[Rfam]
Nucleotides: 088
Base pairs, nucleotide, nucleotide: 008080009079010078012077013076014075015074016073017072018071019070020069023065024064026062027061028060029059032058033057034056
Number, partner (000 for none) and nucleotide at each position: 001000a002000c003000a004000g005000c006000g007000u008080u009079c010078a011000g012077c013076u014075u015074a016073c017072u018071c019070a020069g021000c022000c023065g024064g025000u026062u027061g028060u029059g030000u031000g032058a033057u034056g035000u036000u037000u038000c039000a040000c041000c042000u043000c044000a045000u046000u047000u048000c049000u050000u051000c052000a053000a054000u055000u056034c057033a058032u059029c060028a061027c062026a063000a064024c065023c066000u067000c068000c069020u070019u071018g072017a073016g074015u075014a076013a077012g078010u079009g080008g081000a082000u083000u084000g085000c086000u087000u088000c